RNA sequence: CCAUUCUCGCCCCCUUAUCACUUUUCCAGCCCAGCUUCGUCAUUGUAACUGUUGGACGGAGAACUGAUAAGGGUGCGCGAGUGA
Number, nucleotide and partner (000 for none) at each position: 001c000002c000003a000004u000005u000006c000007u000008c000009g000010c000011c000012c073013c072014c071015u070016u069017a068018u067019c066020a065021c000022u063023u062024u061025u060026c059027c058028a000029g000030c055031c054032c000033a000034g000035c000036u000037u000038c000039g000040u000041c000042a000043u000044u000045g000046u000047a000048a000049c000050u000051g000052u000053u000054g031055g030056a000057c000058g027059g026060a025061g024062a023063a022064c000065u020066g019067a018068u017069a016070a015071g014072g013073g012074u000075g000076c000077g000078c000079g000080a000081g000082u000083g000084a000
RNA: mir-184 microRNA precursor family